[Rfam]
RNA sequence: CGGCAUUUCAAAGCAGCAGUGCCGCAUGGAACCCAGGAUCAGCUGGGGACUCCACAGUUGACCCGGGGCUCCGUGCUGCACUGCUGCUUUGAAAUGCCG
Numbered sequence: 001c002g003g004c005a006u007u008u009c010a011a012a013g014c015a016g017c018a019g020u021g022c023c024g025c026a027u028g029g030a031a032c033c034c035a036g037g038a039u040c041a042g043c044u045g046g047g048g049a050c051u052c053c054a055c056a057g058u059u060g061a062c063c064c065g066g067g068g069c070u071c072c073g074u075g076c077u078g079c080a081c082u083g084c085u086g087c088u089u090u091g092a093a094a095u096g097c098c099g
Stems, first nucleotide, its partner, number of pairs: 001099007010090010024076007
This 99-nucleotide RNA sequence from Pelodiscus sinensis belongs to the Rfam family "mir-252 microRNA precursor family". The family's consensus secondary structure was predicted with RNAalifold. The family has 44 seed sequences and 422 matches in Rfam 15.1. It scores 47 bits against the family's covariance model. On this family, see Ruby et al., Cell 2006: "Large-scale sequencing reveals 21U-RNAs and additional microRNAs and endogenous siRNAs in C. elegans". Its family is annotated with RISC complex and miRNA-mediated post-transcriptional gene silencing in the Gene Ontology. The family is grouped with related families in Rfam's "mir-252 microRNA precursor family".